[Rfam]
A member of the RNA family "c-di-GMP-I riboswitch aptamer" from Lachnospiraceae bacterium YSD2013, 84 nucleotides long.

RNA sequence: CAACCGAAACGGCAAACUCAUUGAAAAGUGAGGACGCAAAACCGAGGGCCUAAAGCGUGACGCUAUGGCAGCCUGGUUUCCGAA
Numbered sequence: 001c002a003a004c005c006g007a008a009a010c011g012g013c014a015a016a017c018u019c020a021u022u023g024a025a026a027a028g029u030g031a032g033g034a035c036g037c038a039a040a041a042c043c044g045a046g047g048g049c050c051u052a053a054a055g056c057g058u059g060a061c062g063c064u065a066u067g068g069c070a071g072c073c074u075g076g077u078u079u080c081c082g083a084a
Stems, first nucleotide, its partner, number of pairs: 012037002017032006040078004045074003048069003055063003

Taxonomically the source falls in Lachnospiraceae (Bacteria, Bacillati, Bacillota, Clostridia).